[Rfam]
RNA sequence: CCCUUCCUUGUCAAGGGGAGCAUUAAUAUCCAAUGAACGUUUAGUGAGGAUAUUUUUGCUGACACCCUUAUUUGAAUAAACCCCCGUCCAAUUACUCGUGAUUGAGCGGAAUUUUUGGAAAU
Numbered sequence: 001c002c003c004u005u006c007c008u009u010g011u012c013a014a015g016g017g018g019a020g021c022a023u024u025a026a027u028a029u030c031c032a033a034u035g036a037a038c039g040u041u042u043a044g045u046g047a048g049g050a051u052a053u054u055u056u057u058g059c060u061g062a063c064a065c066c067c068u069u070a071u072u073u074g075a076a077u078a079a080a081c082c083c084c085c086g087u088c089c090a091a092u093u094a095c096u097c098g099u100g101a102u103u104g105a106g107c108g109g110a111a112u113u114u115u116u117g118g119a120a121a122u
Base pairs, nucleotide, nucleotide: 005019006018007017008016009015020059021058022057025054026053027052028051029050030049031048037045038044084109085108086107087106089104090103091102092101093100094099